The record is a 96-nucleotide RNA from Frondihabitans sp. Leaf304, which matches "Glycine riboswitch aptamer" in Rfam.
RNA sequence: ACACACGCCGCGGGAGAGCCUCCGACCACACCGGUCGGCCACCGAAGGAGCAAGCAUCCCCGCCAAUCUCUCAGGUACACGUACCGCGGCGAAGUA
Numbered sequence: 001a002c003a004c005a006c007g008c009c010g011c012g013g014g015a016g017a018g019c020c021u022c023c024g025a026c027c028a029c030a031c032c033g034g035u036c037g038g039c040c041a042c043c044g045a046a047g048g049a050g051c052a053a054g055c056a057u058c059c060c061c062g063c064c065a066a067u068c069u070c071u072c073a074g075g076u077a078c079a080c081g082u083a084c085c086g087c088g089g090c091g092a093a094g095u096a
Base pairs, nucleotide, nucleotide: 006091007090008089009088010087011086012085013084018039019038020037041076042075043074044072045071048070049069050068054063055062